[Rfam]
The family of this 102-nucleotide sequence from Aotus nancymaae is "Y RNA". It scores 48 bits against the family's covariance model. Rfam classes the family as a non-coding RNA gene. The base pairs follow the family's consensus structure, which is taken from published work. The organism belongs to Aotus, within Eukaryota.

RNA sequence: GACUAGCCUAAGUACAGUGAUGUUUACAACUAAUUGACCACAAACAGUUACAGAUUUCUUAGUUCCUUUUCUACUUCCAUUGCUUCACUUGACUAGCCUUAG
Numbered sequence: 001g002a003c004u005a006g007c008c009u010a011a012g013u014a015c016a017g018u019g020a021u022g023u024u025u026a027c028a029a030c031u032a033a034u035u036g037a038c039c040a041c042a043a044a045c046a047g048u049u050a051c052a053g054a055u056u057u058c059u060u061a062g063u064u065c066c067u068u069u070u071c072u073a074c075u076u077c078c079a080u081u082g083c084u085u086c087a088c089u090u091g092a093c094u095a096g097c098c099u100u101a102g
Stems, first nucleotide, its partner, number of pairs: 001098001003096004008091001010090002016081004028064003032060002